[Rfam]
RNA sequence: GUUUGCGGUUCGGGGGCAUCCUCCUCCCAGCUCCUGAACUGCAAUCCCUCUGCGAACCUAUCGCAGAGCAACCAAAAACGCUUGCCGGAUCCUCCUCCCCCGGCAGGCGUUUUUU
Numbered sequence: 001g002u003u004u005g006c007g008g009u010u011c012g013g014g015g016g017c018a019u020c021c022u023c024c025u026c027c028c029a030g031c032u033c034c035u036g037a038a039c040u041g042c043a044a045u046c047c048c049u050c051u052g053c054g055a056a057c058c059u060a061u062c063g064c065a066g067a068g069c070a071a072c073c074a075a076a077a078a079c080g081c082u083u084g085c086c087g088g089a090u091c092c093u094c095c096u097c098c099c100c101c102g103g104c105a106g107g108c109g110u111u112u113u114u115u
Base pairs, nucleotide, nucleotide: 007040008039009038011036012035013034014033015032016031017030048068049067050066051065052064053063054062055061078110079109080108081107082106083105084104085103086102087101088100
RNA: Alphaproteobacterial ar14
Organism: Roseibium album